Overview
Glycine riboswitch aptamer: a 90-nucleotide RNA from Mycetocola manganoxydans. Pairs were carried over by alignment from the consensus structure.
RNA sequence: ACACGCGAUGCGGGAGAGCCGGGUUAGCCCCGGCACCGAAGGAGCAAGCCUCCCUGCCAAUCUCUCAGGUCUAUGUACCGCAUCGAACUG
Numbered sequence: 001a002c003a004c005g006c007g008a009u010g011c012g013g014g015a016g017a018g019c020c021g022g023g024u025u026a027g028c029c030c031c032g033g034c035a036c037c038g039a040a041g042g043a044g045c046a047a048g049c050c051u052c053c054c055u056g057c058c059a060a061u062c063u064c065u066c067a068g069g070u071c072u073a074u075g076u077a078c079c080g081c082a083u084c085g086a087a088c089u090g
Stems, first nucleotide, its partner, number of pairs: 006085008019033004035070003038066002042064003048057002
Background:
This family represents the bacterial glycine riboswitch. Rfam links the family to the GO term glycine biosynthetic process. It scores 68 bits against the family's covariance model.